A member of the RNA family "Small nucleolar RNA Z112" from Miscanthus lutarioriparius, 186 nucleotides long. The base pairs follow the family's consensus structure, which was predicted with PFOLD. Taxonomically the source falls in Miscanthus (Eukaryota, Tracheophyta, Petrosaviidae, Poaceae). It scores 159 bits against the family's covariance model. Clan: SNORD49 clan. Its family is annotated with nucleolus and RNA processing in the Gene Ontology. A reference for the family is Liang et al. (2002), "A novel gene organization: intronic snoRNA gene clusters from Oryza sativa", Nucleic Acids Res. By type it is a C/D-box small nucleolar RNA.
RNA sequence: GUCCCUGUGAAGAUCUCAAGACCUACCGAUAGGAAGUGCCGUUUGACACUGUAACCAGCAGCUGGCUCUCUCCGCUGCUGGUGUCCAUCCAAUCAUAACCUUUGUGGUUUGGUCUGUGAUGGGGCUCACACCUGCAGUUGUUUGAUUCAUCUGUGGUGUGUGAUUUAAAUCGGGUCUCUGAGGGAU
Numbered sequence: 001g002u003c004c005c006u007g008u009g010a011a012g013a014u015c016u017c018a019a020g021a022c023c024u025a026c027c028g029a030u031a032g033g034a035a036g037u038g039c040c041g042u043u044u045g046a047c048a049c050u051g052u053a054a055c056c057a058g059c060a061g062c063u064g065g066c067u068c069u070c071u072c073c074g075c076u077g078c079u080g081g082u083g084u085c086c087a088u089c090c091a092a093u094c095a096u097a098a099c100c101u102u103u104g105u106g107g108u109u110u111g112g113u114c115u116g117u118g119a120u121g122g123g124g125c126u127c128a129c130a131c132c133u134g135c136a137g138u139u140g141u142u143u144g145a146u147u148c149a150u151c152u153g154u155g156g157u158g159u160g161u162g163a164u165u166u167a168a169a170u171c172g173g174g175u176c177u178c179u180g181a182g183g184g185a186u
Stems, first nucleotide, its partner, number of pairs: 001186005075137004080132004084123006092113004097109004